[Rfam]
RNA sequence: UGUUGUCGGCCAUCUACUCCUCCCAGAUGUGGUGCCGACGCUGAAUGGGGCGCACCUCCUCCCGCGUCUCAUUCGAAAUCGAGCCCGCUGCCACCUCCUCCCGGCAGCGGGCUUUUUUA
Numbered sequence: 001u002g003u004u005g006u007c008g009g010c011c012a013u014c015u016a017c018u019c020c021u022c023c024c025a026g027a028u029g030u031g032g033u034g035c036c037g038a039c040g041c042u043g044a045a046u047g048g049g050g051c052g053c054a055c056c057u058c059c060u061c062c063c064g065c066g067u068c069u070c071a072u073u074c075g076a077a078a079u080c081g082a083g084c085c086c087g088c089u090g091c092c093a094c095c096u097c098c099u100c101c102c103g104g105c106a107g108c109g110g111g112c113u114u115u116u117u118u119a
Stems, first nucleotide, its partner, number of pairs: 007037003011029003043074010081114011
Dot-bracket structure: ......(((.(((.............))).....))).....((((((((((............))))))))))......(((((((((((............))))))))))).....
Shown here is a 119-nucleotide sequence from Mesorhizobium loti, a member of the family "Alphaproteobacterial ar14". The literature on the family includes a 2012 paper in RNA Biol by del Val et al., "A survey of sRNA families in alpha-proteobacteria". Rfam classes the family as a small RNA. The sequence is in the family's curated seed alignment. Smr14C2 was renamed NfeR1 (Nodule Formation Efficiency RNA) highly expressed in salt stress and during the symbiotic interaction on legume roots. Rfam links the family to the GO term biological process involved in symbiotic interaction. NCBI's taxonomy places the organism under Bacteria, Pseudomonadota, Alphaproteobacteria, Hyphomicrobiales, Mesorhizobium.